[Rfam]
RNA: Cyano-1 RNA
RNA sequence: AUGUGUGUAGGAGGAAUUGAUUCAUUUCAGUGGAAACAAGGAAACACUUGAUGUAAAUCAAUUUUAUA
Numbered sequence: 001a002u003g004u005g006u007g008u009a010g011g012a013g014g015a016a017u018u019g020a021u022u023c024a025u026u027u028c029a030g031u032g033g034a035a036a037c038a039a040g041g042a043a044a045c046a047c048u049u050g051a052u053g054u055a056a057a058u059c060a061a062u063u064u065u066a067u068a
Stems, first nucleotide, its partner, number of pairs: 014064006021056002027051003030047003